[Rfam]
RNA sequence: ACUCUCUCCACUCUGCACAGUUACACUAGUUGUGGUGUGACUUUCGUACAGGAGAGAGAAAGAAAAGAGCUCUUCAAAAGGACCUUGAACUGGCCUCAUGGUGGCCAUUCUUUCUUUGAGGGGCACUACAGAU
Numbered sequence: 001a002c003u004c005u006c007u008c009c010a011c012u013c014u015g016c017a018c019a020g021u022u023a024c025a026c027u028a029g030u031u032g033u034g035g036u037g038u039g040a041c042u043u044u045c046g047u048a049c050a051g052g053a054g055a056g057a058g059a060a061a062g063a064a065a066a067g068a069g070c071u072c073u074u075c076a077a078a079a080g081g082a083c084c085u086u087g088a089a090c091u092g093g094c095c096u097c098a099u100g101g102u103g104g105c106c107a108u109u110c111u112u113u114c115u116u117u118g119a120g121g122g123g124c125a126c127u128a129c130a131g132a133u
Stems, first nucleotide, its partner, number of pairs: 002062002005059004011054004019042008070123005078116003087110003091107005